Source information: The family of this 304-nucleotide RNA sequence from Populus alba is "Plant signal recognition particle RNA". A reference for the family is Rosenblad et al. (2003), "SRPDB: Signal Recognition Particle Database", Nucleic Acids Res. The source organism's lineage runs through Eukaryota, Streptophytina, Embryophyta, Tracheophyta and Populus.
[Rfam]
RNA sequence: GCUGAGCUUUGUAACGAGAGCUUGUAACCCGAGUGGGAGCUUUGAAGUGAUGGAACGUUGACUCAGUUUAUAGGGUUGGGUUCAGUUCGGCUAUCAUCUGGCCUGCCCGUUCCAAGCCAGGAGACGUGCUAAGGCAUCCUAGUGAAGACCUGGGUGUCUUGGCUCCUAGAGUGGAGGGCAUAGCGUGAGGCUGGUCUCACAGAGCAGCGAUCACCUUCCGCUCUUGGCAGUGGAAGGAUUACAGGCUGGUGCUGUCUGGAUCCGCAUGGCCUGAUGGGCUGGUCCUAAUUGAACCAUCACUUUU
Numbered sequence: 001g002c003u004g005a006g007c008u009u010u011g012u013a014a015c016g017a018g019a020g021c022u023u024g025u026a027a028c029c030c031g032a033g034u035g036g037g038a039g040c041u042u043u044g045a046a047g048u049g050a051u052g053g054a055a056c057g058u059u060g061a062c063u064c065a066g067u068u069u070a071u072a073g074g075g076u077u078g079g080g081u082u083c084a085g086u087u088c089g090g091c092u093a094u095c096a097u098c099u100g101g102c103c104u105g106c107c108c109g110u111u112c113c114a115a116g117c118c119a120g121g122a123g124a125c126g127u128g129c130u131a132a133g134g135c136a137u138c139c140u141a142g143u144g145a146a147g148a149c150c151u152g153g154g155u156g157u158c159u160u161g162g163c164u165c166c167u168a169g170a171g172u173g174g175a176g177g178g179c180a181u182a183g184c185g186u187g188a189g190g191c192u193g194g195u196c197u198c199a200c201a202g203a204g205c206a207g208c209g210a211u212c213a214c215c216u217u218c219c220g221c222u223c224u225u226g227g228c229a230g231u232g233g234a235a236g237g238a239u240u241a242c243a244g245g246c247u248g249g250u251g252c253u254g255u256c257u258g259g260a261u262c263c264g265c266a267u268g269g270c271c272u273g274a275u276g277g278g279c280u281g282g283u284c285c286u287a288a289u290u291g292a293a294c295c296a297u298c299a300c301u302u303u304u
Base pairs, nucleotide, nucleotide: 001040002039003038004023005022006021007020008019009018010017028037029036030035044303045302046301047300048299049298050297051296052295053294056291057290058288059287060286063282064281065280066279068277069276070275071274073272074271075270076269077268078263079262080261081260082259083258084257085256088254089253090252092251093250098249099248100247101246102245103244104243105242107237108236110235111234112233113232114231116228117227118226119225120224121223122222123221126165128163129162130161131160132159133158134157135156136155137154138153139152142149143148166171173218174217175216176215177214182211184209185208186207191202192201193200

The match comes from Rfam's covariance-model search (249 bits).
The family's consensus secondary structure is taken from published work.